[Rfam]
RNA sequence: AAAUGUGCUGUGAUGAGGCUUAUGUGGACUAGAGUUUCUGAUUUGGUAGUUGAAGACAAACCCUUGGCUGUCUGAGCACAUUU
Numbered sequence: 001a002a003a004u005g006u007g008c009u010g011u012g013a014u015g016a017g018g019c020u021u022a023u024g025u026g027g028a029c030u031a032g033a034g035u036u037u038c039u040g041a042u043u044u045g046g047u048a049g050u051u052g053a054a055g056a057c058a059a060a061c062c063c064u065u066g067g068c069u070g071u072c073u074g075a076g077c078a079c080a081u082u083u
Stems, first nucleotide, its partner, number of pairs: 001083008035055004042048001
RNA: Small nucleolar RNA Z157/R69/R10
Organism: Colocasia esculenta